[Rfam]
RNA sequence: CUCUCUGGAAAGCAGGCGCGCAAAAGGCGGCGUGCCUCACCCAAGGUGAAAGCCGCGUUCCGUCCUGAGGGCGGAGGCGGUCAAUCUCUCAGGUCCGACGACAGAGGG
Numbered sequence: 001c002u003c004u005c006u007g008g009a010a011a012g013c014a015g016g017c018g019c020g021c022a023a024a025a026g027g028c029g030g031c032g033u034g035c036c037u038c039a040c041c042c043a044a045g046g047u048g049a050a051a052g053c054c055g056c057g058u059u060c061c062g063u064c065c066u067g068a069g070g071g072c073g074g075a076g077g078c079g080g081u082c083a084a085u086c087u088c089u090c091a092g093g094u095c096c097g098a099c100g101a102c103a104g105a106g107g108g
Stems, first nucleotide, its partner, number of pairs: 001108007014037007039094003043089001046088001048086001052081005
The record is a 108-nucleotide RNA from Oceanibaculum indicum, which matches "Glycine riboswitch aptamer" in Rfam.